[Rfam]
Shown here is a 128-nucleotide RNA from Pectobacterium carotovorum, a member of the family "EFASI RNA". Rfam classes the family as a small RNA.

RNA sequence: AAAGAUCGAUACCGAGGGGGCAAUGACGCCCCGGAGAAUUCCUGCUUCGGCAGGCAGCCCGUACAGCGUACUGGCUGAAACUCCCUAUACCUCAACAAGCUGCCACUCCGGCGUGAAGGUAUCGUUCU
Numbered sequence: 001a002a003a004g005a006u007c008g009a010u011a012c013c014g015a016g017g018g019g020g021c022a023a024u025g026a027c028g029c030c031c032c033g034g035a036g037a038a039u040u041c042c043u044g045c046u047u048c049g050g051c052a053g054g055c056a057g058c059c060c061g062u063a064c065a066g067c068g069u070a071c072u073g074g075c076u077g078a079a080a081c082u083c084c085c086u087a088u089a090c091c092u093c094a095a096c097a098a099g100c101u102g103c104c105a106c107u108c109c110g111g112c113g114u115g116a117a118g119g120u121a122u123c124g125u126u127c128u
Base pairs, nucleotide, nucleotide: 002128004126005125007124008123009122010121011120012119013118018031019030020029021028033084034083035082036081041054042053043052044051045050055077056076057075058074061071062070063069064068
Dot-bracket structure: .(.((.(((((((....((((......)))).((((....(((((....)))))((((..((((...))))..))))...)))).................................))))))))).)
Notes: Lineage of the source: Bacteria > Pseudomonadati > Gammaproteobacteria > Pectobacterium carotovorum > Pectobacterium carotovorum subsp. carotovorum.